A member of the RNA family "Small nucleolar RNA U105B" from Dipodomys ordii, 80 nucleotides long.
[Rfam]
RNA sequence: GGGUGUGCGGCUGAUGACGUUGAUGCUGCUGAGACCUCGUGAUGGCUCAGCCUCAAAGUAAACGCGCUGACGCACUGUGG
Numbered sequence: 001g002g003g004u005g006u007g008c009g010g011c012u013g014a015u016g017a018c019g020u021u022g023a024u025g026c027u028g029c030u031g032a033g034a035c036c037u038c039g040u041g042a043u044g045g046c047u048c049a050g051c052c053u054c055a056a057a058g059u060a061a062a063c064g065c066g067c068u069g070a071c072g073c074a075c076u077g078u079g080g
Stems, first nucleotide, its partner, number of pairs: 005075005010021001012019002029050005
The source organism's lineage runs through Eukaryota, Opisthokonta, Eumetazoa, Rodentia and Dipodomys. The family is grouped with related families in Rfam's "SNORD105 clan". Rfam 15.1 lists 132 matches to the family in 131 species. Rfam links the family to the GO terms nucleolus and RNA processing.